This 95-nucleotide RNA sequence from Sinomonas humi belongs to the Rfam family "Glycine riboswitch aptamer". This family represents the bacterial glycine riboswitch. The match comes from Rfam's covariance-model search (64 bits).

[Rfam]
RNA sequence: UAAGCCGCAGCGGGAGAGUCCGACAUAACCCGGUCGGCGCCGUAGGAGCAACACCUCCCCAGGAAUCUCUCAGGCACCUGUACCGCCGCGGCAAG
Dot-bracket structure: .....(((.((((......((((..........)))).((((...(((...(.........)....))).).))).......)))).))).....